[Rfam]
The family of this 248-nucleotide sequence from Streptococcus varani is "T-box leader". A search with the family's covariance model found it, with a score of 96 bits. Pairs were carried over by alignment from the consensus structure, which is taken from published work.
RNA sequence: AUAUAAUAAAACUAUCAGAAAAGUAGUUUAUCUGUUGUUUUGAGAGAGCUUGUGGGUGCUGAAAACAAGUAGCAUAGGUAGAUGAAUGGGCUGAUGUUUCACGUGAAACUAAACAAUAGGUUUCAGGACUAGCACCCCUUACCGUGCAGGCCUCGAUUGUGUCGAGACAAAAAAGAUGACAGUGUUGUAAAGUUAUGUAAAUAAACUGUCAACUGAGGUGGUACCGUGUUAGUAAUAACGCCCUCACG
Number, nucleotide and partner (000 for none) at each position: 001a000002u000003a000004u000005a000006a000007u000008a098009a000010a000011a000012c000013u000014a000015u094016c093017a092018g091019a000020a000021a000022a000023g000024u000025a000026g083027u082028u081029u080030a079031u078032c000033u000034g000035u000036u000037g073038u072039u071040u000041u000042g000043a000044g000045a000046g000047a000048g070049c069050u068051u067052g066053u065054g000055g000056g000057u000058g000059c000060u000061g000062a000063a000064a000065a053066c052067a051068a050069g049070u048071a039072g038073c037074a000075u000076a000077g000078g031079u030080a029081g028082a027083u026084g000085a000086a000087u000088g000089g000090g000091c018092u017093g016094a015095u000096g000097u000098u008099u000100c000101a000102c000103g000104u125105g124106a123107a122108a121109c120110u119111a000112a000113a000114c000115a000116a000117u000118a000119g110120g109121u108122u107123u106124c105125a104126g138127g137128a000129c000130u000131a000132g000133c000134a000135c000136c000137c127138c126139u000140u000141a000142c000143c000144g000145u000146g000147c000148a000149g000150g000151c000152c000153u000154c000155g000156a000157u000158u000159g000160u000161g000162u000163c000164g000165a000166g000167a000168c000169a000170a000171a000172a000173a000174a000175g000176a000177u000178g210179a209180c208181a207182g206183u205184g000185u000186u000187g000188u000189a000190a000191a000192g000193u000194u000195a000196u000197g000198u000199a000200a000201a000202u000203a000204a000205a183206c182207u181208g180209u179210c178211a000212a000213c000214u000215g245216a244217g243218g242219u000220g000221g000222u000223a000224c000225c000226g241227u240228g239229u238230u237231a000232g000233u000234a000235a000236u000237a230238a229239c228240g227241c226242c218243c217244u216245c215246a000247c000248g000
Description
The organism belongs to Streptococcus, within Bacteria. Rfam 15.1 lists 19,395 matches to the family in 1,923 species. Rfam classes the family as a cis-regulatory leader.